This 73-nucleotide sequence from Betta splendens belongs to the Rfam family "Small nucleolar RNA SNORD2".
Rfam 15.1 lists 1,116 matches to the family in 660 species.
On this family, see Zhou et al., Gene 2004: "Identification of a novel box C/D snoRNA from mouse nucleolar cDNA library".
The family's RNA type in Rfam is C/D-box small nucleolar RNA.
Pairs were carried over by alignment from the consensus structure, which was predicted with WAR.
Lineage of the source: Eukaryota > Deuterostomia > Osteoglossocephalai > Anabantoidei > Betta.

RNA sequence: GGGUGAUGUGAUGGUAACCAUCUUUCGGGACUGACUCUAUACUGGAGAGUUUAUUUACGUUUACUGAUCACCA
Numbered sequence: 001g002g003g004u005g006a007u008g009u010g011a012u013g014g015u016a017a018c019c020a021u022c023u024u025u026c027g028g029g030a031c032u033g034a035c036u037c038u039a040u041a042c043u044g045g046a047g048a049g050u051u052u053a054u055u056u057a058c059g060u061u062u063a064c065u066g067a068u069c070a071c072c073a
Stems, first nucleotide, its partner, number of pairs: 002072005